[Rfam]
RNA: SAH (S-adenosyl-L-homocysteine) riboswitch aptamer
Organism: Inhella proteolytica
RNA sequence: GCCUCCGAGGAGCGUUGCAACCCGUCAAUGACGGGCCAGGCUCGGAGGCCAGGGGUGCUGAGAUCCCCUGCGGCAACGGCGCUCACCCGCU
Numbered sequence: 001g002c003c004u005c006c007g008a009g010g011a012g013c014g015u016u017g018c019a020a021c022c023c024g025u026c027a028a029u030g031a032c033g034g035g036c037c038a039g040g041c042u043c044g045g046a047g048g049c050c051a052g053g054g055g056u057g058c059u060g061a062g063a064u065c066c067c068c069u070g071c072g073g074c075a076a077c078g079g080c081g082c083u084c085a086c087c088c089g090c091u
Stems, first nucleotide, its partner, number of pairs: 002048007021035006